[Rfam]
RNA sequence: CCCUCCGAAGUUUCUCUCAGGAUAGCAAGAGCAAGUACGCAGUUUUAUUAGGUAAAGCGAAUGAUUAGAGGACUCGGGGUUCCAAGAAUCUCGACCUAUUCUCAAACUUUAAAUUGGUAAGAGCCGCGGAGUUUUCUUAAUUGAACUCUCGGGUAGAAUGCAGUGCUCUUAGUGGGCCAUUUUUGGUAAGCAGAACUGGCGAUGAGGGAUGAACCUAACGUUGAGAUAAGGCGCCCAAAUGCACGCUCAUCAGAUACCACAAAAGGUGUUGGUUCAUAUGGACAGCAGGACGGUGGCUAUGGAAGUUAGAAUCCGCUAAGGAGUGUGUAACAACUCACCUGCCGAAUGAACUAGCCCUGAAAAUGGAUGGCGCUGAAGCGUGUUGCCGAUACUCAACCAUCAGAGCAAAUGCGAGGCUUUGAUGAGUAGGAGGGCGUGAUCGUUGCCUAGAAGUAUUGGGCGUGAGCUAUAUGGAGCAGCGAUUAGUGCAGAU
Numbered sequence: 001c002c003c004u005c006c007g008a009a010g011u012u013u014c015u016c017u018c019a020g021g022a023u024a025g026c027a028a029g030a031g032c033a034a035g036u037a038c039g040c041a042g043u044u045u046u047a048u049u050a051g052g053u054a055a056a057g058c059g060a061a062u063g064a065u066u067a068g069a070g071g072a073c074u075c076g077g078g079g080u081u082c083c084a085a086g087a088a089u090c091u092c093g094a095c096c097u098a099u100u101c102u103c104a105a106a107c108u109u110u111a112a113a114u115u116g117g118u119a120a121g122a123g124c125c126g127c128g129g130a131g132u133u134u135u136c137u138u139a140a141u142u143g144a145a146c147u148c149u150c151g152g153g154u155a156g157a158a159u160g161c162a163g164u165g166c167u168c169u170u171a172g173u174g175g176g177c178c179a180u181u182u183u184u185g186g187u188a189a190g191c192a193g194a195a196c197u198g199g200c201g202a203u204g205a206g207g208g209a210u211g212a213a214c215c216u217a218a219c220g221u222u223g224a225g226a227u228a229a230g231g232c233g234c235c236c237a238a239a240u241g242c243a244c245g246c247u248c249a250u251c252a253g254a255u256a257c258c259a260c261a262a263a264a265g266g267u268g269u270u271g272g273u274u275c276a277u278a279u280g281g282a283c284a285g286c287a288g289g290a291c292g293g294u295g296g297c298u299a300u301g302g303a304a305g306u307u308a309g310a311a312u313c314c315g316c317u318a319a320g321g322a323g324u325g326u327g328u329a330a331c332a333a334c335u336c337a338c339c340u341g342c343c344g345a346a347u348g349a350a351c352u353a354g355c356c357c358u359g360a361a362a363a364u365g366g367a368u369g370g371c372g373c374u375g376a377a378g379c380g381u382g383u384u385g386c387c388g389a390u391a392c393u394c395a396a397c398c399a400u401c402a403g404a405g406c407a408a409a410u411g412c413g414a415g416g417c418u419u420u421g422a423u424g425a426g427u428a429g430g431a432g433g434g435c436g437u438g439a440u441c442g443u444u445g446c447c448u449a450g451a452a453g454u455a456u457u458g459g460g461c462g463u464g465a466g467c468u469a470u471a472u473g474g475a476g477c478a479g480c481g482a483u484u485a486g487u488g489c490a491g492a493u
Stems, first nucleotide, its partner, number of pairs: 001434006011024001013022003027170007043122008055110001056108002062104003067099001069097003074094006081087001124152003128149006176200004181195005205216003220397005230387003239384001241383001244380003264358003268355010285342005291315003297309002316320001321336001325334002398424009435488001437485010453472002459468003
RNA: Eukaryotic large subunit ribosomal RNA, nucleotides 954 to 1446